[Rfam]
RNA sequence: UUCGCGGUCCAGGGCCAGGCGACGACCUCGCCGGUGAGGGCCUCGUCGCCGAAGUGGUCGCCGUUGGCGAGAGUGCCGAGAACCGCGUCGUGGUCGCCGAACUUGCCGUCCCCCAGCUUGCGGAUCUUGCCGUGGGCGACAACCAGGACAUGGUCGACGGGUGCGCCGAGUUCGGCCACCACCUCGCCGGGCUCGAACUCGCGCUGCUCGAAGCGACCGGCCAGCUCGGUGAGCAGCGUCUGGUCCCCGAACCCGCGCAGGACCGGCAGUUCGGCCAGCGUCGGCGGGACGAUCCGCACCUCCGCACCGGUCUGCGCGAAGCUGAUCCGCCCCCGUCCGGUCGCGUAGGUGAGCCGCCGGUUGACCCGGUAGGUACCGCCGGCGACCUGUACCCACGGCAGCAUCUUCAACAGCCACCGCGAGGUGAUGCCCUGCAUCUGCGGGGCGGUCUUGGUGGUGGUCGCAAGGUUCUUUGCUGCUGCUGUGCCGAGAGCUGUCUGCUCGUCCGUCAU
Numbered sequence: 001u002u003c004g005c006g007g008u009c010c011a012g013g014g015c016c017a018g019g020c021g022a023c024g025a026c027c028u029c030g031c032c033g034g035u036g037a038g039g040g041c042c043u044c045g046u047c048g049c050c051g052a053a054g055u056g057g058u059c060g061c062c063g064u065u066g067g068c069g070a071g072a073g074u075g076c077c078g079a080g081a082a083c084c085g086c087g088u089c090g091u092g093g094u095c096g097c098c099g100a101a102c103u104u105g106c107c108g109u110c111c112c113c114c115a116g117c118u119u120g121c122g123g124a125u126c127u128u129g130c131c132g133u134g135g136g137c138g139a140c141a142a143c144c145a146g147g148a149c150a151u152g153g154u155c156g157a158c159g160g161g162u163g164c165g166c167c168g169a170g171u172u173c174g175g176c177c178a179c180c181a182c183c184u185c186g187c188c189g190g191g192c193u194c195g196a197a198c199u200c201g202c203g204c205u206g207c208u209c210g211a212a213g214c215g216a217c218c219g220g221c222c223a224g225c226u227c228g229g230u231g232a233g234c235a236g237c238g239u240c241u242g243g244u245c246c247c248c249g250a251a252c253c254c255g256c257g258c259a260g261g262a263c264c265g266g267c268a269g270u271u272c273g274g275c276c277a278g279c280g281u282c283g284g285c286g287g288g289a290c291g292a293u294c295c296g297c298a299c300c301u302c303c304g305c306a307c308c309g310g311u312c313u314g315c316g317c318g319a320a321g322c323u324g325a326u327c328c329g330c331c332c333c334c335g336u337c338c339g340g341u342c343g344c345g346u347a348g349g350u351g352a353g354c355c356g357c358c359g360g361u362u363g364a365c366c367c368g369g370u371a372g373g374u375a376c377c378g379c380c381g382g383c384g385a386c387c388u389g390u391a392c393c394c395a396c397g398g399c400a401g402c403a404u405c406u407u408c409a410a411c412a413g414c415c416a417c418c419g420c421g422a423g424g425u426g427a428u429g430c431c432c433u434g435c436a437u438c439u440g441c442g443g444g445g446c447g448g449u450c451u452u453g454g455u456g457g458u459g460g461u462c463g464c465a466a467g468g469u470u471c472u473u474u475g476c477u478g479c480u481g482c483u484g485u486g487c488c489g490a491g492a493g494c495u496g497u498c499u500g501c502u503c504g505u506c507c508g509u510c511a512u
Base pairs, nucleotide, nucleotide: 006393007392008391010389011388012387015384018331019330021328023324024323026321028319029318035316036315038313039312040311041310042309045308048305049304051302052301054237055236058232059231060230061229062228063227066113067112075106077105078104079103080102083099085097086096120225121224123222125220126219130215133212134209135208136207137206138205146199147198153194156192158190160188161187162186165180168177238299239298240296243293244292245291248288252286254284256283257282259281260279263274264273265272332345334343335342354382355381356380358378359377360376364374365373366372394434395433397431398430399429400428402426403425404424406421408419440479441478442477443476445474447472448471450468451467452466454464455463480511481510486501487500489498490497
Shown here is a 512-nucleotide RNA sequence from Streptomyces sp. 846.5, a member of the family "Saccharopolyspora sRNA 350". It is annotated as an antisense RNA. The base pairs follow the family's consensus structure, which was predicted with RNAfold.